[Rfam]
RNA sequence: AGCUUUGCGCAGUGGCAGUAUCGUAGCCAAUGAGGUUUAUCCAAGGCGCGAUUAUUGCUAAUUGAAAAACUUAAAGGAAUUUCAAAUUCUUUAAGAUCCAGAAGGAAGUUGGAGCAUGUAUGUAUUUCUUGAUAGA
Numbered sequence: 001a002g003c004u005u006u007g008c009g010c011a012g013u014g015g016c017a018g019u020a021u022c023g024u025a026g027c028c029a030a031u032g033a034g035g036u037u038u039a040u041c042c043a044a045g046g047c048g049c050g051a052u053u054a055u056u057g058c059u060a061a062u063u064g065a066a067a068a069a070c071u072u073a074a075a076g077g078a079a080u081u082u083c084a085a086a087u088u089c090u091u092u093a094a095g096a097u098c099c100a101g102a103a104g105g106a107a108g109u110u111g112g113a114g115c116a117u118g119u120a121u122g123u124a125u126u127u128c129u130u131g132a133u134a135g136a
Base pairs, nucleotide, nucleotide: 020052021051022050023049024048026047027046028045034042035041081114082113083112084110085109087107088106089105090104091103092102129136130135

The family of this 136-nucleotide RNA sequence from Mustela putorius is "U4 spliceosomal RNA". It is annotated as a spliceosomal small nuclear RNA. Its Rfam clan is "U4 clan". Its family is annotated with U4 snRNP and spliceosomal tri-snRNP complex assembly in the Gene Ontology. U4 small nuclear RNA (U4 snRNA) is a component of the major U2-dependent spliceosome. Lineage of the source: Eukaryota > Vertebrata > Euteleostomi > Theria > Mustela putorius.